Notes: The family of this 72-nucleotide sequence from Galemys pyrenaicus is "U1A polyadenylation inhibition element (PIE)". For this family Rfam cites "The NMR structure of the 38 kDa U1A protein - PIE RNA complex reveals the basis of cooperativity in regulation of polyadenylation by human U1A protein" (Varani et al., Nat Struct Biol, 2000). About the family: This family represents the U1A polyadenylation inhibition element (PIE). PIE is a regulatory RNA which is responsible for the regulation of the length of the polyA tail of the U1A pre-mRNA. The PIE is located in the U1A mRNA 3' UTR. PIE adopts a U-shaped structure, with binding sites for a single U1A protein at each bend and when complexed with the two proteins it blocks activity of poly(A) polymerase (PAP), and inhibits its activity. Rfam classes the family as a cis-regulatory element. Its family is annotated with regulation of mRNA polyadenylation in the Gene Ontology. The match comes from Rfam's covariance-model search (59 bits).
[Rfam]
RNA sequence: UCACACCGCUUUGUACCAAGUCUGUCCCCAGACAUUGUACCUGGUGCUGUUAGGUCAGAAUUAAAGUGGUGU
Numbered sequence: 001u002c003a004c005a006c007c008g009c010u011u012u013g014u015a016c017c018a019a020g021u022c023u024g025u026c027c028c029c030a031g032a033c034a035u036u037g038u039a040c041c042u043g044g045u046g047c048u049g050u051u052a053g054g055u056c057a058g059a060a061u062u063a064a065a066g067u068g069g070u071g072u
Stems, first nucleotide, its partner, number of pairs: 005050002008047002016044003020033005